[Rfam]
RNA: Selenocysteine insertion sequence 1
Nucleotides: 066
Stems, first nucleotide, its partner, number of pairs: 001066005014050009030038003
Number, partner (000 for none) and nucleotide at each position: 001066c002065u003064c004063u005062g006000u007000u008000a009000a010000u011000g012000a013000c014050g015049u016048c017047u018046c019045u020044c021043c022042c023000u024000c025000u026000a027000a028000a029000c030038c031037c032036u033000u034000u035000a036032a037031g038030g039000a040000c041000u042022g043021g044020g045019g046018g047017a048016g049015g050014c051000a052000g053000a054000u055000u056000a057000a058000g059000c060000c061000c062005c063004a064003g065002a066001g